The family of this 158-nucleotide sequence from Glycine max is "MIR4371 microRNA precursor family". Its family is annotated with miRNA-mediated post-transcriptional gene silencing and RISC complex in the Gene Ontology. Its Rfam clan is "MIR4387 microRNA precursor clan". The family's consensus secondary structure was predicted with RNAalifold.
RNA sequence: CUGUCAAGUAAUGACAUGGUAGACGGAGUGCCUCGUCAUCACGCCUAAUCACUAACACGUCAGUGCCACAUCAUUGAAGGCGAUGACAUGACAAUGAGUUGUUUGUGAUAAGGCGUGAUGACAUGGCACUCCAUCUGUCACAUCAUCACAUAACGGAA
Numbered sequence: 001c002u003g004u005c006a007a008g009u010a011a012u013g014a015c016a017u018g019g020u021a022g023a024c025g026g027a028g029u030g031c032c033u034c035g036u037c038a039u040c041a042c043g044c045c046u047a048a049u050c051a052c053u054a055a056c057a058c059g060u061c062a063g064u065g066c067c068a069c070a071u072c073a074u075u076g077a078a079g080g081c082g083a084u085g086a087c088a089u090g091a092c093a094a095u096g097a098g099u100u101g102u103u104u105g106u107g108a109u110a111a112g113g114c115g116u117g118a119u120g121a122c123a124u125g126g127c128a129c130u131c132c133a134u135c136u137g138u139c140a141c142a143u144c145a146u147c148a149c150a151u152a153a154c155g156g157a158a
Stems, first nucleotide, its partner, number of pairs: 001156004006151001008149002011146004017140007025132008035122012048109005054103004071086004